RNA sequence: ACGGGAACAGCACAGCCGCAGAUCCGACUCGCCGGGGUAUUUUCGCCCGCGGCUUGGGAAUGUGGCAGUGC
Numbered sequence: 001a002c003g004g005g006a007a008c009a010g011c012a013c014a015g016c017c018g019c020a021g022a023u024c025c026g027a028c029u030c031g032c033c034g035g036g037g038u039a040u041u042u043u044c045g046c047c048c049g050c051g052g053c054u055u056g057g058g059a060a061u062g063u064g065g066c067a068g069u070g071c
Stems, first nucleotide, its partner, number of pairs: 010071004015066006024058002031053004035048004
This 71-nucleotide RNA sequence from Halorubrum sp. BV1 belongs to the Rfam family "S15-Halobacteria ribosomal protein leader". A reference for the family is Eckert and Weinberg (2020), "Discovery of 20 novel ribosomal leader candidates in bacteria and archaea", BMC Microbiol. Its Rfam clan is "Ribosomal Protein S15 Leader clan".